A member of the RNA family "mir-205 microRNA precursor family" from Channa argus, 76 nucleotides long. The base pairs follow the family's consensus structure, which was predicted with RNAalifold. Rfam 15.1 lists 1,154 matches to the family in 646 species. The match comes from Rfam's covariance-model search (68 bits). On this family, see Lim et al., Science 2003: "Vertebrate microRNA genes". Lineage of the source: Eukaryota > Actinopterygii > Osteoglossocephalai > Clupeocephala > Channa. Its family is annotated with RISC complex and miRNA-mediated post-transcriptional gene silencing in the Gene Ontology.
RNA sequence: GUAUUUUAUCCUUCAUUCCACCGGAGUCUGUGUGAAGUGUAAAAUCAGAUUUCAGUGGUUUGAAGAGUAAGACGCA
Numbered sequence: 001g002u003a004u005u006u007u008a009u010c011c012u013u014c015a016u017u018c019c020a021c022c023g024g025a026g027u028c029u030g031u032g033u034g035a036a037g038u039g040u041a042a043a044a045u046c047a048g049a050u051u052u053c054a055g056u057g058g059u060u061u062g063a064a065g066a067g068u069a070a071g072a073c074g075c076a
Stems, first nucleotide, its partner, number of pairs: 011065005019057003023053004028048003